This 84-nucleotide sequence from Candidatus Glomeribacter gigasporarum belongs to the Rfam family "sRNA-Xcc1". Rfam 15.1 lists 421 matches to the family in 299 species. The literature on the family includes a 2011 paper in RNA Biol by Chen et al., "sRNA-Xcc1, an integron-encoded transposon- and plasmid-transferred trans-acting sRNA, is under the positive control of the key virulence regulators HrpG and HrpX of Xanthomonas campestris pathovar campestris". The family's RNA type in Rfam is small RNA.
RNA sequence: GGGCGGGAGUGCGGCUAAUACAAGACCCGCAAGGGAAAUACGCCCGCCGACUCGUUGCGGUUUUCAGCGCCUGCCCGCCCCCUG
Numbered sequence: 001g002g003g004c005g006g007g008a009g010u011g012c013g014g015c016u017a018a019u020a021c022a023a024g025a026c027c028c029g030c031a032a033g034g035g036a037a038a039u040a041c042g043c044c045c046g047c048c049g050a051c052u053c054g055u056u057g058c059g060g061u062u063u064u065c066a067g068c069g070c071c072u073g074c075c076c077g078c079c080c081c082c083u084g
Stems, first nucleotide, its partner, number of pairs: 001076007009068001013044003016040002026035003046061004